This 97-nucleotide RNA sequence from Litchfieldia salsa belongs to the Rfam family "Glycine riboswitch aptamer". The source organism's lineage runs through Bacteria, Bacillota, Bacilli, Caryophanales and Litchfieldia. A search with the family's covariance model found it, with a score of 70 bits.
RNA sequence: AUGAUGAUAAGGGGAGAGACUACCGAAAUUAGGUGGCGCCGAAGGAGCAAACAAAGAAAUUUGUGAAUCUCUCAGGCAAAAAGACUCUUGUUUGACG
Numbered sequence: 001a002u003g004a005u006g007a008u009a010a011g012g013g014g015a016g017a018g019a020c021u022a023c024c025g026a027a028a029u030u031a032g033g034u035g036g037c038g039c040c041g042a043a044g045g046a047g048c049a050a051a052c053a054a055a056g057a058a059a060u061u062u063g064u065g066a067a068u069c070u071c072u073c074a075g076g077c078a079a080a081a082a083g084a085c086u087c088u089u090g091u092u093u094g095a096c097g
Base pairs, nucleotide, nucleotide: 006092007091008090009089010088011087012086013085020036021035022034023033038077039076040075041073042072045071046070047069051064052063053062054061
Dot-bracket structure: .....((((((((......((((.........)))).(((((..(((...((((......))))....))))).))).......)))))))).....